[Rfam]
The record is a 114-nucleotide RNA from Ornithinibacillus halophilus, which matches "epsC RNA" in Rfam. Taxonomically the source falls in Ornithinibacillus (Bacteria, Bacillati, Bacillota, Bacillaceae). The match comes from Rfam's covariance-model search (97 bits). The family has 30 seed sequences and 450 matches in Rfam 15.1.
Nucleotides: 114
Base pairs, nucleotide, nucleotide: 001019002018003017004016007034008033009032010031011030012029013028035097036096037095038094039092040091041090042089043088044087045086046085049065050064051063052062068081069080070079071078100114101113102112103111104110
Number, partner (000 for none) and nucleotide at each position: 001019g002018g003017g004016u005000g006000a007034u008033g009032u010031c011030u012029c013028c014000u015000u016004a017003u018002c019001c020000u021000u022000a023000g024000c025000a026000a027000u028013g029012g030011a031010g032009g033008u034007a035097c036096u037095c038094g039092g040091c041090u042089g043088u044087g045086c046085u047000g048000u049065g050064g051063g052062u053000u054000g055000a056000a057000a058000u059000a060000g061000u062052a063051c064050c065049u066000u067000a068081g069080a070079c071078a072000c073000u074000u075000a076000g077000u078071u079070g080069u081068c082000a083000g084000u085046g086045g087044u088043g089042u090041g091040g092039c093000g094038u095037g096036a097035g098000g099000u100114g101113g102112g103111g104110u105000u106000a107000g108000a109000u110104g111103c112102c113101c114100u